[Rfam]
RNA: mir-26 microRNA precursor family
RNA sequence: CCUGGGUCUGGUUCAAGUAAUCCAGGAUAGGCUUGUUUUAGUGGGGGAAGCCUAUUCAGGACGACUUGGUUCAGAAACAAG
Numbered sequence: 001c002c003u004g005g006g007u008c009u010g011g012u013u014c015a016a017g018u019a020a021u022c023c024a025g026g027a028u029a030g031g032c033u034u035g036u037u038u039u040a041g042u043g044g045g046g047g048a049a050g051c052c053u054a055u056u057c058a059g060g061a062c063g064a065c066u067u068g069g070u071u072c073a074g075a076a077a078c079a080a081g
Base pairs, nucleotide, nucleotide: 003079004078007075008074009073010072011071014068015067016066017065018064021061022060025057026056027055028054029053030052031051032050033049